[Rfam]
RNA: Small nucleolar RNA SNORA17
RNA sequence: ACUGCCCCUAGAGGCGCUGCAGGCGUGGCUGCCGUGUCACGUCUGCGUCAUGAGGUGGCAGAGAGGAAAGAGGCUCGGUCUACGCCCAGUGUUCUGGCCGGUGGACAUCUGGAUGAUUGAUAGUCUGACACU
Numbered sequence: 001a002c003u004g005c006c007c008c009u010a011g012a013g014g015c016g017c018u019g020c021a022g023g024c025g026u027g028g029c030u031g032c033c034g035u036g037u038c039a040c041g042u043c044u045g046c047g048u049c050a051u052g053a054g055g056u057g058g059c060a061g062a063g064a065g066g067a068a069a070g071a072g073g074c075u076c077g078g079u080c081u082a083c084g085c086c087c088a089g090u091g092u093u094c095u096g097g098c099c100g101g102u103g104g105a106c107a108u109c110u111g112g113a114u115g116a117u118u119g120a121u122a123g124u125c126u127g128a129c130a131c132u
Stems, first nucleotide, its partner, number of pairs: 002061005007055003011051001013049003019046004024041006071126005083115002086112004090107005